Source information
The family of this 136-nucleotide sequence from Anaerosolibacter carboniphilus is "Ribosomal protein L20 leader". By type it is a cis-regulatory leader.

RNA sequence: GAUAUGAAGUAGAAGUUAUCCGCUUCUCACCUUACAACAUGGGUUCGUAAGGUUAAUAUGAGCUUGUUACUUAUUUCUAAGUAUUCUUUUGAGCUUAUGAGGCGGAUGUGCUGAACAUCCGUCUUUUUAUUUAUAU
Numbered sequence: 001g002a003u004a005u006g007a008a009g010u011a012g013a014a015g016u017u018a019u020c021c022g023c024u025u026c027u028c029a030c031c032u033u034a035c036a037a038c039a040u041g042g043g044u045u046c047g048u049a050a051g052g053u054u055a056a057u058a059u060g061a062g063c064u065u066g067u068u069a070c071u072u073a074u075u076u077c078u079a080a081g082u083a084u085u086c087u088u089u090u091g092a093g094c095u096u097a098u099g100a101g102g103c104g105g106a107u108g109u110g111c112u113g114a115a116c117a118u119c120c121g122u123c124u125u126u127u128u129a130u131u132u133a134u135a136u
Stems, first nucleotide, its partner, number of pairs: 011027006029053003034048002037044002101123009
A search with the family's covariance model found it, with a score of 64 bits. Rfam describes the family as follows. This family is a putative r-protein leader autoregulatory structure found in B. subtilis and other low-GC Gram-positive bacteria.